[Rfam]
RNA sequence: GGGGAUGUAACUCAGUAGUAGAGUGUUUGACUGCAAAUCAAAGAGUCCUUGGUUCAAACUCAAUUACCCCCU
Numbered sequence: 001g002g003g004g005a006u007g008u009a010a011c012u013c014a015g016u017a018g019u020a021g022a023g024u025g026u027u028u029g030a031c032u033g034c035a036a037a038u039c040a041a042a043g044a045g046u047c048c049u050u051g052g053u054u055c056a057a058a059c060u061c062a063a064u065u066a067c068c069c070c071c072u
Stems, first nucleotide, its partner, number of pairs: 001071004006066002010024004026042005049063004
RNA: tRNA